The record is a 129-nucleotide sequence from Apolygus lucorum, which matches "U11 spliceosomal RNA" in Rfam. Rfam links the family to the GO terms U11 snRNP, pre-mRNA 5'-splice site binding and mRNA 5'-splice site recognition. The family's consensus secondary structure is taken from published work. The organism belongs to Apolygus, within Eukaryota.
RNA sequence: UAAAAGGGUGCUCCUCACUUGCAUGAGGCACGUGCCUCACGGCGCGUGGGGUAUGGCUAUCCAGACAUACUCAACACAUAAUUUUUAUGACAGCGAGGCUGCUGACUGUCAACAAGCAUCGGCGCCUCC
Dot-bracket structure: .......(((.((((((......)))))((((((((....))))))))(((((((..........)))))))).)))..................((((.(((((.(((......))))))))))))..